Shown here is a 379-nucleotide sequence from Chaetomium globosum, a member of the family "Group I catalytic intron". Gene Ontology term of the family: Group I intron splicing. The source organism's lineage runs through Eukaryota, Opisthokonta, Ascomycota, Sordariomycetidae and Chaetomium globosum. Group I catalytic introns are large self-splicing ribozymes. The base pairs follow the family's consensus structure, which is taken from published work.
RNA sequence: AUUUCUCAUUACUUAUAUUUAGUGUAGGGUUUUUAUUCAAAGUUAGUGCAGCUCCUUUUCAUUUUUGAUCACCUAAAAUAGGACUUGGGAAAUCCUUAUCAACAAGCGUUGGGUGUAAACUAUCAAAUUCCGGGGAACCCCUAAAGCUUCUGGGACUAAACCAGGCACGAAAGUGCUUGAGUGGCUGAACUACUUACUCAGGUAUAGUAAUAAGCCAGAAGAUGAGUGAAAACGAAAUGGGCAAUCGCGGAUCUAAGUCAGUAAUACAUACGACCAAGCAGUCGAGUAUUAUUGUAAAAGAGCAACGAGUAAAUGGUAGUUGAUGUGGUAAAUUAAUACCACAUUUAAGAUGUACUCUACUGGGCUUCGAAAGAAGUUA
Numbered sequence: 001a002u003u004u005c006u007c008a009u010u011a012c013u014u015a016u017a018u019u020u021a022g023u024g025u026a027g028g029g030u031u032u033u034u035a036u037u038c039a040a041a042g043u044u045a046g047u048g049c050a051g052c053u054c055c056u057u058u059u060c061a062u063u064u065u066u067g068a069u070c071a072c073c074u075a076a077a078a079u080a081g082g083a084c085u086u087g088g089g090a091a092a093u094c095c096u097u098a099u100c101a102a103c104a105a106g107c108g109u110u111g112g113g114u115g116u117a118a119a120c121u122a123u124c125a126a127a128u129u130c131c132g133g134g135g136a137a138c139c140c141c142u143a144a145a146g147c148u149u150c151u152g153g154g155a156c157u158a159a160a161c162c163a164g165g166c167a168c169g170a171a172a173g174u175g176c177u178u179g180a181g182u183g184g185c186u187g188a189a190c191u192a193c194u195u196a197c198u199c200a201g202g203u204a205u206a207g208u209a210a211u212a213a214g215c216c217a218g219a220a221g222a223u224g225a226g227u228g229a230a231a232a233c234g235a236a237a238u239g240g241g242c243a244a245u246c247g248c249g250g251a252u253c254u255a256a257g258u259c260a261g262u263a264a265u266a267c268a269u270a271c272g273a274c275c276a277a278g279c280a281g282u283c284g285a286g287u288a289u290u291a292u293u294g295u296a297a298a299a300g301a302g303c304a305a306c307g308a309g310u311a312a313a314u315g316g317u318a319g320u321u322g323a324u325g326u327g328g329u330a331a332a333u334u335a336a337u338a339c340c341a342c343a344u345u346u347a348a349g350a351u352g353u354a355c356u357c358u359a360c361u362g363g364g365c366u367u368c369g370a371a372a373g374a375a376g377u378u379a
Base pairs, nucleotide, nucleotide: 005029006028007027010024011023012022013021118321119320120319121318122317124315125314129251130250131249132248133246134245139241140240141239252301253300259294260293264289265288266287267286305358307357308356309355310354311353323344324343325342326341327340328339329338330337364377365376366375367374368373